[Rfam]
RNA sequence: GUACUGGAUGGGAGUUUAACCGCUGCGACCCAUAGUUGUACAUCAAAACAGAGCGAUGUUAGAUGUACAAACAGUGC
Numbered sequence: 001g002u003a004c005u006g007g008a009u010g011g012g013a014g015u016u017u018a019a020c021c022g023c024u025g026c027g028a029c030c031c032a033u034a035g036u037u038g039u040a041c042a043u044c045a046a047a048a049c050a051g052a053g054c055g056a057u058g059u060u061a062g063a064u065g066u067a068c069a070a071a072c073a074g075u076g077c
Stems, first nucleotide, its partner, number of pairs: 001077006009032004037069008
RNA: CyVA-1 RNA
Organism: Allocoleopsis franciscana